[Rfam]
RNA: Small nucleolar RNA R16
RNA sequence: GGUGGCAUAUGAUGCAUACAUAAUCUUAUCCUACACACUGAAUGCAAUGUGUGGACCAAUACUCCGCUUAUUAUCUGAUGCCACA
Dot-bracket structure: ..(((((.......................................................................)))))..